Shown here is a 120-nucleotide RNA sequence from Streptomyces sp. SID8354, a member of the family "Streptomyces-metH RNA". Lineage of the source: Bacteria > Actinomycetota > Kitasatosporales > Streptomycetaceae > Streptomyces. The family's RNA type in Rfam is small RNA. The base pairs follow the family's consensus structure, which is taken from published work.

RNA sequence: CUGUCCACGCCGUGGAACGGGGAACACCUCUCUCGGCCCGGAAGCUACGCUGGCCGGGUGCGCCCUCUUCAGGAGGGGUGCAAAGCCGACAGCCGUCGCAACCACGGGAGCACUUCCAUG
Numbered sequence: 001c002u003g004u005c006c007a008c009g010c011c012g013u014g015g016a017a018c019g020g021g022g023a024a025c026a027c028c029u030c031u032c033u034c035g036g037c038c039c040g041g042a043a044g045c046u047a048c049g050c051u052g053g054c055c056g057g058g059u060g061c062g063c064c065c066u067c068u069u070c071a072g073g074a075g076g077g078g079u080g081c082a083a084a085g086c087c088g089a090c091a092g093c094c095g096u097c098g099c100a101a102c103c104a105c106g107g108g109a110g111c112a113c114u115u116c117c118a119u120g
Stems, first nucleotide, its partner, number of pairs: 059082004064076004085099002088097003